[Rfam]
RNA sequence: GGCCUUUGUGUUGCCCAUUCAUUCCUGUCCAGAAUGGAUGUGGUGUCAAAAAAGGCAAACAGAAAUUCUUGCUCAAACUGGUUUAGGGAGUUGUUUAUGAACCUUCCUCCUCUGUUUUUGCAAGGACAAAU
Numbered sequence: 001g002g003c004c005u006u007u008g009u010g011u012u013g014c015c016c017a018u019u020c021a022u023u024c025c026u027g028u029c030c031a032g033a034a035u036g037g038a039u040g041u042g043g044u045g046u047c048a049a050a051a052a053a054g055g056c057a058a059a060c061a062g063a064a065a066u067u068c069u070u071g072c073u074c075a076a077a078c079u080g081g082u083u084u085a086g087g088g089a090g091u092u093g094u095u096u097a098u099g100a101a102c103c104u105u106c107c108u109c110c111u112c113u114g115u116u117u118u119u120g121c122a123a124g125g126a127c128a129a130a131u
Stems, first nucleotide, its partner, number of pairs: 002056006009048002012045004016040008068124004074120004084114004088109002093102001
The record is a 131-nucleotide RNA sequence from Leucopsar rothschildi, which matches "Small nucleolar RNA SNORA13" in Rfam.
ACA13 is a member of the H/ACA class of snoRNA that guide the sites of modification of uridines to pseudouridines.
The family has 50 seed sequences and 1,034 matches in Rfam 15.1.
The organism belongs to Leucopsar, within Eukaryota.
The family is grouped with related families in Rfam's "SNORA13 clan".